[Rfam]
RNA: Bacillus-plasmid RNA
Organism: Bacillus smithii
RNA sequence: UUUGUCAACGGUAAAUCGGACUGAGUGAAGGAUGAACAAAGUAGAAUUUAAGGAGUUGACAAACUAACUACA
Numbered sequence: 001u002u003u004g005u006c007a008a009c010g011g012u013a014a015a016u017c018g019g020a021c022u023g024a025g026u027g028a029a030g031g032a033u034g035a036a037c038a039a040a041g042u043a044g045a046a047u048u049u050a051a052g053g054a055g056u057u058g059a060c061a062a063a064c065u066a067a068c069u070a071c072a
Stems, first nucleotide, its partner, number of pairs: 001063009